[Rfam]
RNA sequence: AAUAAGAAAAUAACGAAACCUCAUAUAAUUUUGGGAAUAUGGCCCAUAAGUCUCUACCUGAGCACCGUAAAUAGCUCAGACUAUGAGGGGAAGUUUGCACUGU
Numbered sequence: 001a002a003u004a005a006g007a008a009a010a011u012a013a014c015g016a017a018a019c020c021u022c023a024u025a026u027a028a029u030u031u032u033g034g035g036a037a038u039a040u041g042g043c044c045c046a047u048a049a050g051u052c053u054c055u056a057c058c059u060g061a062g063c064a065c066c067g068u069a070a071a072u073a074g075c076u077c078a079g080a081c082u083a084u085g086a087g088g089g090g091a092a093g094u095u096u097g098c099a100c101u102g103u
Stems, first nucleotide, its partner, number of pairs: 019088007029049002032046004058079006064072001

A member of the RNA family "Purine riboswitch aptamer" from Bacillus sp. THAF10, 103 nucleotides long. Pairs were carried over by alignment from the consensus structure, which is taken from published work. NCBI's taxonomy places the organism under Bacteria, Bacillota, Bacilli, Caryophanales, Bacillus.